[Rfam]
RNA sequence: AAGACUAUACUUUCAGGGAUCAUUUCUAUAGUUCGUUACUAGAGAAGUUUCUCUGAUCGUGUAGAGUACCGAAAACCACGAGGAGGAGCUAUAGCGUUCCCUUCUGAGCGUGAAGCAGGCAUUUGGUGUUGCUUUAUUGCAACUGCCUCUUGCCAUUGAUGAUCGUUCUUCUCUCCUUUUAGGAGGGCUAGAGGGAGGGAACGCAGUCUGAGUGGU
Numbered sequence: 001a002a003g004a005c006u007a008u009a010c011u012u013u014c015a016g017g018g019a020u021c022a023u024u025u026c027u028a029u030a031g032u033u034c035g036u037u038a039c040u041a042g043a044g045a046a047g048u049u050u051c052u053c054u055g056a057u058c059g060u061g062u063a064g065a066g067u068a069c070c071g072a073a074a075a076c077c078a079c080g081a082g083g084a085g086g087a088g089c090u091a092u093a094g095c096g097u098u099c100c101c102u103u104c105u106g107a108g109c110g111u112g113a114a115g116c117a118g119g120c121a122u123u124u125g126g127u128g129u130u131g132c133u134u135u136a137u138u139g140c141a142a143c144u145g146c147c148u149c150u151u152g153c154c155a156u157u158g159a160u161g162a163u164c165g166u167u168c169u170u171c172u173c174u175c176c177u178u179u180u181a182g183g184a185g186g187g188c189u190a191g192a193g194g195g196a197g198g199g200a201a202c203g204c205a206g207u208c209u210g211a212g213u214g215g216u
Base pairs, nucleotide, nucleotide: 002040003039006035009032010031011030015027016026017025018024049065050064054061075216076215077214078213079212094204095203096202097201098200099199100198101197102196103195104194105193108166109165110164118154119153120152121151125147126146127145128143129142130141131140132139169190171187172186173185174184175183176182177181
RNA: Small nucleolar RNA U3